[Rfam]
RNA sequence: CCUGCUGUCUCACCAGCAGUUCCCUAUCCGACUGUGCGUCGAGAGUAAUUUCGAGGUGUAAAGCGUCGGGGACAACGUAGCCACGGGUAUCCGUAGGUGCGAUCCGCGAGGGUCAAACCAAAACUGCCAGCCGCAGGCGGUGAAGGCU
Numbered sequence: 001c002c003u004g005c006u007g008u009c010u011c012a013c014c015a016g017c018a019g020u021u022c023c024c025u026a027u028c029c030g031a032c033u034g035u036g037c038g039u040c041g042a043g044a045g046u047a048a049u050u051u052c053g054a055g056g057u058g059u060a061a062a063g064c065g066u067c068g069g070g071g072a073c074a075a076c077g078u079a080g081c082c083a084c085g086g087g088u089a090u091c092c093g094u095a096g097g098u099g100c101g102a103u104c105c106g107c108g109a110g111g112g113u114c115a116a117a118c119c120a121a122a123a124c125u126g127c128c129a130g131c132c133g134c135a136g137g138c139g140g141u142g143a144a145g146g147c148u
Stems, first nucleotide, its partner, number of pairs: 002019006028069005033060005039054006083094004096119003104111002123141006